[Rfam]
RNA sequence: ACGCCUCUGGAAAGCGACGGACCACCACGGGGAGUCCGUCCGCCGACGGGGAAAGCCCGAAGCCUCGGGUGAAUCUCUCAGGCGCCCGGAUCGCGGGUACGGACAGAGGGGAGGGG
Numbered sequence: 001a002c003g004c005c006u007c008u009g010g011a012a013a014g015c016g017a018c019g020g021a022c023c024a025c026c027a028c029g030g031g032g033a034g035u036c037c038g039u040c041c042g043c044c045g046a047c048g049g050g051g052a053a054a055g056c057c058c059g060a061a062g063c064c065u066c067g068g069g070u071g072a073a074u075c076u077c078u079c080a081g082g083c084g085c086c087c088g089g090a091u092c093g094c095g096g097g098u099a100c101g102g103a104c105a106g107a108g109g110g111g112a113g114g115g116g
Stems, first nucleotide, its partner, number of pairs: 002111001004109006016040007042083003045079002049077003055070006
A member of the RNA family "Glycine riboswitch aptamer" from Pseudonocardia autotrophica, 116 nucleotides long.
The source organism's lineage runs through Bacteria, Bacillati, Actinomycetota, Pseudonocardiales and Pseudonocardia.
It scores 41 bits against the family's covariance model.